[Rfam]
RNA sequence: UAGAACACGUGGGAUAGGGGAUGACCUUGUCGACCGGUUAUCGGUCCCCUGCUCCUUCGAGCUGGCAAGGCGCCCAAAGGUUCUA
Numbered sequence: 001u002a003g004a005a006c007a008c009g010u011g012g013g014a015u016a017g018g019g020g021a022u023g024a025c026c027u028u029g030u031c032g033a034c035c036g037g038u039u040a041u042c043g044g045u046c047c048c049c050u051g052c053u054c055c056u057u058c059g060a061g062c063u064g065g066c067a068a069g070g071c072g073c074c075c076a077a078a079g080g081u082u083c084u085a
Stems, first nucleotide, its partner, number of pairs: 001085006010076004017048002021063001023071001024050001025070007032046005051062004
Background
The record is an 85-nucleotide RNA sequence from Umbravirus pisi, which matches "Panicum mosaic virus cap-independent translation enhancer RNA (PTE)" in Rfam. About the family: The Panicum mosaic virus translation element (PTE) is a cap-independent translation enhancer in Viral RNAs. The family's RNA type in Rfam is cis-regulatory element. The organism belongs to Umbravirus pisi, within Viruses.